[Rfam]
RNA sequence: GGAUCAAUGAUGAGUCCUCUGUCAAAACAUUUAUUGGAAAAGCUGAAGAAAAUUAGUGAAAUUCACUAUCGUCUCCCUCAUUGGAACUGACGUCC
Numbered sequence: 001g002g003a004u005c006a007a008u009g010a011u012g013a014g015u016c017c018u019c020u021g022u023c024a025a026a027a028c029a030u031u032u033a034u035u036g037g038a039a040a041a042g043c044u045g046a047a048g049a050a051a052a053u054u055a056g057u058g059a060a061a062u063u064c065a066c067u068a069u070c071g072u073c074u075c076c077c078u079c080a081u082u083g084g085a086a087c088u089g090a091c092g093u094c095c
Stems, first nucleotide, its partner, number of pairs: 001095004028058004034050002